[Rfam]
Nucleotides: 070
Stems, first nucleotide, its partner, number of pairs: 030049007
Number, partner (000 for none) and nucleotide at each position: 001000g002000g003000c004000a005000c006000g007000c008000u009000a010000g011000c012000u013000g014000c015000u016000a017000g018000g019000a020000g021000c022000a023000g024000g025000u026000c027000g028000a029000g030049g031048c032047a033046g034045g035044c036043c037000a038000a039000c040000g041000g042000c043036g044035g045034u046033c047032u048031g049030c050000a051000a052000a053000u054000c055000a056000c057000g058000a059000c060000a061000a062000a063000g064000g065000c066000g067000u068000c069000g070000c

The record is a 70-nucleotide RNA sequence from Stutzerimonas stutzeri, which matches "narK RNA" in Rfam. Rfam classes the family as a cis-regulatory element. Pairs were carried over by alignment from the consensus structure, which is taken from published work. The organism belongs to Stutzerimonas stutzeri, within Bacteria.